[Rfam]
RNA sequence: UCCUGUAUCGAAAGUGACCAUGGUGUGUGUGUCGCCAGGUCAUUGAUAGUACAGGAACAGCAAGCUGGGGCCUUUUCCCGUGUUUGAAGGAUCCUCCGUUCCUUUUGAACCCUGGUGCUCCCAGACA
Numbered sequence: 001u002c003c004u005g006u007a008u009c010g011a012a013a014g015u016g017a018c019c020a021u022g023g024u025g026u027g028u029g030u031g032u033c034g035c036c037a038g039g040u041c042a043u044u045g046a047u048a049g050u051a052c053a054g055g056a057a058c059a060g061c062a063a064g065c066u067g068g069g070g071c072c073u074u075u076u077c078c079c080g081u082g083u084u085u086g087a088a089g090g091a092u093c094c095u096c097c098g099u100u101c102c103u104u105u106u107g108a109a110c111c112c113u114g115g116u117g118c119u120c121c122c123a124g125a126c127a
Stems, first nucleotide, its partner, number of pairs: 001056008013044007022036004066123002068120004082110005087104005

Small nucleolar RNA SNORA71: a 127-nucleotide sequence from Menidia menidia. Rfam links the family to the GO terms nucleolus and RNA processing. NCBI's taxonomy places the organism under Eukaryota, Metazoa, Deuterostomia, Teleostomi, Menidia. By type it is an H/ACA-box small nucleolar RNA.